[Rfam]
RNA: TPP riboswitch aptamer (THI element)
Organism: Paractinoplanes abujensis
Nucleotides: 112
Stems, first nucleotide, its partner, number of pairs: 007099001009097002011063004017032005039057008068093004074087004
Number, partner (000 for none) and nucleotide at each position: 001000a002000c003000a004000c005000a006000a007099c008000c009097c010096c011063a012062c013061g014060g015000g016000a017032g018031u019030c020029c021028g022000g023000u024000g025000c026000a027000c028021c029020g030019g031018g032017c033000u034000g035000a036000g037000a038000g039057g040056g041055g042054g043053g044052c045051u046050g047000a048000c049000g050046c051045g052044g053043c054042c055041c056040c057039c058000g059000a060014c061013c062012g063011u064000c065000g066000a067000a068093c069092c070091u071090g072000a073000u074087c075086c076085g077084g078000a079000u080000c081000a082000u083000g084077c085076c086075g087074g088000c089000g090071c091070a092069g093068g094000g095000a096010g097009g098000a099007g100000c101000g102000a103000c104000a105000g106000u107000u108000g109000u110000u111000g112000u